This 104-nucleotide sequence from Lophocebus aterrimus belongs to the Rfam family "Mitochondrial DNA control region secondary structure A".
RNA sequence: AUUUGAUGUUGGUGUGAACCUUACAAUACAAUCUUAGUACUAACUUGUUUCUAAUGCUACUAUGUAAUUCGUGCAUUACUGCUAGCCAACAUGAAUAAUAUAUA
Numbered sequence: 001a002u003u004u005g006a007u008g009u010u011g012g013u014g015u016g017a018a019c020c021u022u023a024c025a026a027u028a029c030a031a032u033c034u035u036a037g038u039a040c041u042a043a044c045u046u047g048u049u050u051c052u053a054a055u056g057c058u059a060c061u062a063u064g065u066a067a068u069u070c071g072u073g074c075a076u077u078a079c080u081g082c083u084a085g086c087c088a089a090c091a092u093g094a095a096u097a098a099u100a101u102a103u104a
Stems, first nucleotide, its partner, number of pairs: 003095002006092004011086001014082003022036002026032002037057002041053001043052001062076005